[Rfam]
RNA sequence: UCCUCACCAAAGCUGCGUUUCUUUGCUUCCACACAGACAAAGCGAUGCUUUACCGCUCGCCUUUGUCCUCUAUCUUGCAAAUGAGAAAUUCGGAGUAAUCUUCACACUUUACACUCACCUUGUUCUUGCAAAAGAGCGAGCUCUGAGUCACUGCCCGCGAGGGCCUGACGUGACACGUCUGCACCUGGCAUCAGAAACUCAGGACGUCUUGACCUAACAUCCACUGCGGUGGUGAAGAGGAAGAGAUCGCGUUCCUAUGGGAGCCGGUGCGAAGAUUGUGUGCGAGUCUUCAAUGACUUGCGAUACUUGAGUGCAAUACGCAGCGUUUUCUUCUUUCACGGAGGGAAUAAUUCGAUUCCGAUUACUCGGGUGAGGA
Numbered sequence: 001u002c003c004u005c006a007c008c009a010a011a012g013c014u015g016c017g018u019u020u021c022u023u024u025g026c027u028u029c030c031a032c033a034c035a036g037a038c039a040a041a042g043c044g045a046u047g048c049u050u051u052a053c054c055g056c057u058c059g060c061c062u063u064u065g066u067c068c069u070c071u072a073u074c075u076u077g078c079a080a081a082u083g084a085g086a087a088a089u090u091c092g093g094a095g096u097a098a099u100c101u102u103c104a105c106a107c108u109u110u111a112c113a114c115u116c117a118c119c120u121u122g123u124u125c126u127u128g129c130a131a132a133a134g135a136g137c138g139a140g141c142u143c144u145g146a147g148u149c150a151c152u153g154c155c156c157g158c159g160a161g162g163g164c165c166u167g168a169c170g171u172g173a174c175a176c177g178u179c180u181g182c183a184c185c186u187g188g189c190a191u192c193a194g195a196a197a198c199u200c201a202g203g204a205c206g207u208c209u210u211g212a213c214c215u216a217a218c219a220u221c222c223a224c225u226g227c228g229g230u231g232g233u234g235a236a237g238a239g240g241a242a243g244a245g246a247u248c249g250c251g252u253u254c255c256u257a258u259g260g261g262a263g264c265c266g267g268u269g270c271g272a273a274g275a276u277u278g279u280g281u282g283c284g285a286g287u288c289u290u291c292a293a294u295g296a297c298u299u300g301c302g303a304u305a306c307u308u309g310a311g312u313g314c315a316a317u318a319c320g321c322a323g324c325g326u327u328u329u330c331u332u333c334u335u336u337c338a339c340g341g342a343g344g345g346a347a348u349a350a351u352u353c354g355a356u357u358c359c360g361a362u363u364a365c366u367c368g369g370g371u372g373a374g375g376a
Stems, first nucleotide, its partner, number of pairs: 001376004007370002014323001019318001022081004036067006091360005100274004153164004167179004181270005187264001201256003325348009
RNA: Nuclear RNase P
Organism: Aureobasidium pullulans